[Rfam]
RNA sequence: CUGUAACCGUUGCGCUGAUGUGCGACGGAGUCCGUAACGGUUGCAGUGAGUUUUUCAGACGUCCAUCGCACCGUGCACAAACCCACGCGUGCACGGCCCGAACACGGGAGAGAACGCUGAGCGUUACAAC
Numbered sequence: 001c002u003g004u005a006a007c008c009g010u011u012g013c014g015c016u017g018a019u020g021u022g023c024g025a026c027g028g029a030g031u032c033c034g035u036a037a038c039g040g041u042u043g044c045a046g047u048g049a050g051u052u053u054u055u056c057a058g059a060c061g062u063c064c065a066u067c068g069c070a071c072c073g074u075g076c077a078c079a080a081a082c083c084c085a086c087g088c089g090u091g092c093a094c095g096g097c098c099c100g101a102a103c104a105c106g107g108g109a110g111a112g113a114a115c116g117c118u119g120a121g122c123g124u125u126a127c128a129a130c
Stems, first nucleotide, its partner, number of pairs: 001046012071096008
RNA: atpB RNA